This 371-nucleotide RNA from Gleimia coleocanis belongs to the Rfam family "Bacterial RNase P class A". From the family's description: Ribonuclease P (RNase P) is a ubiquitous endoribonuclease, found in archaea, bacteria and eukarya as well as chloroplasts and mitochondria. The family's RNA type in Rfam is ribozyme.

[Rfam]
RNA sequence: AGAGGCCACUGGAUGGUCGCCGCUGAAAUUUCAGGGGAGGAACGUCCGGACUCCACAGGACACGAUGGUGGCUAACGGCCACCCGGGGCGACCCGCGGGCUAGUGCCACAGAGAAUAGACCGCUUUCGCAGGAAAAUGUCGAAAGUAAGGGUGAAACGGUGGUGUAAGAGACCACCAGUAACGCAGGUGACUGCGUUAGCUAGGUAAACCCCAUCGGGAGCAAAACCAAGUAGCAUACUGGGCUGUCCGUCUAAAGUAUGCGGGUAGGUUGCUUGACUGGCAUGGCAACAUGCCAGCUAGAUAGAUGGCCAUCGAAAAGGAAGCGGUAACGCUCCUUGGAACAGAAUCCGGCUUAUAGGUGGCCUCUUCCC
Number, nucleotide and partner (000 for none) at each position: 001a367002g366003a365004g364005g363006c362007c361008a360009c359010u358011g356012g313013a312014u311015g310016g309017u308018c307019g000020c037021c036022g000023c034024u033025g032026a031027a000028a000029u000030u000031u026032c025033a024034g023035g000036g021037g020038a000039g000040g000041a000042a354043c000044g352045u000046c351047c350048g349049g348050a347051c220052u219053c218054c217055a000056c000057a000058g248059g247060a246061c245062a000063c216064g215065a214066u213067g212068g082069u081070g080071g079072c078073u000074a000075a000076c000077g000078g072079c071080c070081a069082c068083c097084c095085g094086g093087g092088g000089c000090g000091a000092c087093c086094c085095g084096c000097g083098g211099g210100c000101u000102a000103g209104u208105g205106c204107c203108a000109c000110a000111g000112a000113g000114a000115a000116u000117a000118g000119a000120c150121c149122g146123c145124u144125u143126u142127c141128g140129c000130a000131g000132g000133a000134a000135a000136a000137u000138g000139u000140c128141g127142a126143a125144a124145g123146u122147a000148a000149g121150g120151g000152u000153g000154a000155a000156a000157c000158g176159g175160u174161g173162g172163u171164g000165u000166a000167a000168g000169a000170g000171a163172c162173c161174a160175c159176c158177a000178g200179u198180a197181a196182c195183g194184c193185a192186g191187g000188u000189g000190a000191c186192u185193g184194c183195g182196u181197u180198a179199g000200c178201u000202a000203g107204g106205u105206a000207a000208a104209c103210c099211c098212c067213a066214u065215c064216g063217g054218g053219a052220g051221c000222a000223a000224a270225a269226c268227c267228a000229a000230g000231u000232a000233g261234c260235a259236u258237a257238c256239u253240g252241g251242g250243c249244u000245g061246u060247c059248c058249g243250u242251c241252u240253a239254a000255a000256g238257u237258a236259u235260g234261c233262g000263g000264g000265u000266a000267g227268g226269u225270u224271g000272c000273u000274u000275g000276a000277c296278u295279g294280g293281c292282a291283u290284g289285g000286c000287a000288a000289c284290a283291u282292g281293c280294c279295a278296g277297c000298u000299a000300g000301a000302u000303a000304g000305a000306u000307g018308g017309c016310c015311a014312u013313c012314g000315a000316a000317a000318a000319g000320g000321a000322a000323g000324c000325g000326g000327u000328a000329a000330c000331g000332c000333u000334c000335c000336u000337u000338g000339g000340a000341a000342c000343a000344g000345a000346a000347u050348c049349c048350g047351g046352c044353u000354u042355a000356u011357a000358g010359g009360u008361g007362g006363c005364c004365u003366c002367u001368u000369c000370c000371c000